[Rfam]
RNA sequence: AAAUGUAAAAGGCAAAGCUGGCGAAAGCCAGUGACGCAAAACUAUAGGGCCUUGAUUUGAAGGAACUUAACCCCUCCUUCAGAUUGUGGCAGCCAGGUGCCAUU
Numbered sequence: 001a002a003a004u005g006u007a008a009a010a011g012g013c014a015a016a017g018c019u020g021g022c023g024a025a026a027g028c029c030a031g032u033g034a035c036g037c038a039a040a041a042c043u044a045u046a047g048g049g050c051c052u053u054g055a056u057u058u059g060a061a062g063g064a065a066c067u068u069a070a071c072c073c074c075u076c077c078u079u080c081a082g083a084u085u086g087u088g089g090c091a092g093c094c095a096g097g098u099g100c101c102a103u104u
Base pairs, nucleotide, nucleotide: 012037013036017032018031019030020029021028022027040098042096043095047094048093049090050089051088057083